[Rfam]
RNA sequence: UACGUAUCGAUGAUGAAAAAUAGUUAAAUCCUUUUAAGGAAUCUAUUUUUUUGAUGUUUAACGUA
Numbered sequence: 001u002a003c004g005u006a007u008c009g010a011u012g013a014u015g016a017a018a019a020a021u022a023g024u025u026a027a028a029u030c031c032u033u034u035u036a037a038g039g040a041a042u043c044u045a046u047u048u049u050u051u052u053g054a055u056g057u058u059u060a061a062c063g064u065a
Base pairs, nucleotide, nucleotide: 001065002064003063004062005061015051016050017049018048019047020046021045022044023043030039031038032037
Rfam assigns this 65-nucleotide RNA sequence from Dimorphilus gyrociliatus to the family "Selenocysteine insertion sequence 1".
Pairs were carried over by alignment from the consensus structure, which is taken from published work.
Its family is annotated with selenocysteine incorporation in the Gene Ontology.
It is annotated as a cis-regulatory element.
The match comes from Rfam's covariance-model search (42 bits).
Rfam 15.1 lists 3,793 matches to the family in 721 species.
NCBI's taxonomy places the organism under Eukaryota, Metazoa, Bilateria, Lophotrochozoa, Dimorphilus.